[Rfam]
RNA sequence: UCUGGGCGGGGUAGCGACCGUCUGUAACCCGAGCGGGGGUAGGAGGGUGCGGAUGUAGGGCGCCAGGGCCGGGCCUGUUGAGGCGUGUGGAGGGCCUGCCCGCUCCAAACAUGGAGUCAUCGCUGGGGUCUCACCGGAAGGUGAGGCUGCGGCGGUGUUAGAGUGGAGGGCAUCACGUCAGGCGGGCAACCGAGCAGCGUUCACUUCCCGCUCUGUGUAGUGGAGGGAUCACGGGCCUGAAUGUUCUCAGCAGAUCACCCUUCCUGGCAUGCUCCUACGCACCAUCUUC
Numbered sequence: 001u002c003u004g005g006g007c008g009g010g011g012u013a014g015c016g017a018c019c020g021u022c023u024g025u026a027a028c029c030c031g032a033g034c035g036g037g038g039g040u041a042g043g044a045g046g047g048u049g050c051g052g053a054u055g056u057a058g059g060g061c062g063c064c065a066g067g068g069c070c071g072g073g074c075c076u077g078u079u080g081a082g083g084c085g086u087g088u089g090g091a092g093g094g095c096c097u098g099c100c101c102g103c104u105c106c107a108a109a110c111a112u113g114g115a116g117u118c119a120u121c122g123c124u125g126g127g128g129u130c131u132c133a134c135c136g137g138a139a140g141g142u143g144a145g146g147c148u149g150c151g152g153c154g155g156u157g158u159u160a161g162a163g164u165g166g167a168g169g170g171c172a173u174c175a176c177g178u179c180a181g182g183c184g185g186g187c188a189a190c191c192g193a194g195c196a197g198c199g200u201u202c203a204c205u206u207c208c209c210g211c212u213c214u215g216u217g218u219a220g221u222g223g224a225g226g227g228a229u230c231a232c233g234g235g236c237c238u239g240a241a242u243g244u245u246c247u248c249a250g251c252a253g254a255u256c257a258c259c260c261u262u263c264c265u266g267g268c269a270u271g272c273u274c275c276u277a278c279g280c281a282c283c284a285u286c287u288u289c
Stems, first nucleotide, its partner, number of pairs: 002039002004023006028037003043289007052280001055278001057276003060272003063267006071260003075253008083244001086240001092238007100227002103225005109218009118157008127148009158163001165208005175200004183192003
RNA: Plant signal recognition particle RNA
Organism: Ceratodon purpureus